c-di-AMP riboswitch aptamer (ydaO/yuaA leader): a 169-nucleotide RNA sequence from Paenibacillus silvestris. Pairs were carried over by alignment from the consensus structure. From the family's description: This family represents a conserved RNA structure found upstream of the ydaO and yuaA genes in Bacillus subtilis and related genes in other bacteria. The ydaO/yuaA element is thought to act as a genetic 'off' switch for the ydaO and yuaA genes in its native state. It is believed that the element may be triggered during osmotic shock leading to activation of ydaO, a predicted amino acid transporter gene, and members of the yuaA-yubG operon which code for KtrA and KtrB K+ transporters. The match comes from Rfam's covariance-model search (84 bits). NCBI's taxonomy places the organism under Bacteria, Bacillati, Bacillota, Paenibacillaceae, Paenibacillus.
RNA sequence: AAGUUGAAAACGCUGAGUCCCCGCAAGGGGAACGGGGGAACCAAUAGAGGACGGCUCUAGAGCAACGUCUUCGUGGGGUGAAUCCAAGGCAAGCUCCAGCUUGCCAAGGUAGGGUGCUUCCAAGCCCGAAUCCGACAGCUAACCUCGUAAGCGGAUUGGGAGAGAGCCA
Numbered sequence: 001a002a003g004u005u006g007a008a009a010a011c012g013c014u015g016a017g018u019c020c021c022c023g024c025a026a027g028g029g030g031a032a033c034g035g036g037g038g039a040a041c042c043a044a045u046a047g048a049g050g051a052c053g054g055c056u057c058u059a060g061a062g063c064a065a066c067g068u069c070u071u072c073g074u075g076g077g078g079u080g081a082a083u084c085c086a087a088g089g090c091a092a093g094c095u096c097c098a099g100c101u102u103g104c105c106a107a108g109g110u111a112g113g114g115u116g117c118u119u120c121c122a123a124g125c126c127c128g129a130a131u132c133c134g135a136c137a138g139c140u141a142a143c144c145u146c147g148u149a150a151g152c153g154g155a156u157u158g159g160g161a162g163a164g165a166g167c168c169a
Stems, first nucleotide, its partner, number of pairs: 011153004018031003032148006042075002076133003084109002112127004